The record is a 120-nucleotide RNA sequence from Rotaria sp. Silwood1, which matches "U4atac minor spliceosomal RNA" in Rfam. Its family is annotated with spliceosomal tri-snRNP complex assembly, mRNA 5'-splice site recognition and U4atac snRNP in the Gene Ontology. Rfam's curators write: U4atac is an essential component of the minor U12-type spliceosome complex which is required for removal of the rarer class of eukaryotic introns (AT-AC, U12-type).
[Rfam]
RNA sequence: UUAGUCCUUGUCUUGGGGAGCAUGACUGUUCAAUGAACGUUUAGUGAGGGCAGUUUUGCUGACAAAAUAACAUUUAUAUCGCAUUAGUAUUGCCUCAGUAUUGAUGCAAUUUUUGGCGAG
Number, nucleotide and partner (000 for none) at each position: 001u000002u000003a000004g000005u019006c018007c017008u016009u015010g000011u000012c000013u000014u000015g009016g008017g007018g006019a005020g059021c058022a057023u000024g000025a054026c053027u052028g051029u050030u049031c048032a000033a000034u000035g000036a000037a045038c044039g000040u000041u000042u000043a000044g038045u037046g000047a000048g031049g030050g029051c028052a027053g026054u025055u000056u000057u022058g021059c020060u000061g000062a000063c000064a000065a000066a000067a000068u000069a000070a000071c000072a000073u000074u000075u000076a000077u000078a000079u000080c000081g107082c106083a105084u104085u103086a102087g101088u100089a099090u098091u097092g096093c000094c000095u000096c092097a091098g090099u089100a088101u087102u086103g085104a084105u083106g082107c081108a000109a000110u000111u000112u000113u000114u000115g000116g000117c000118g000119a000120g000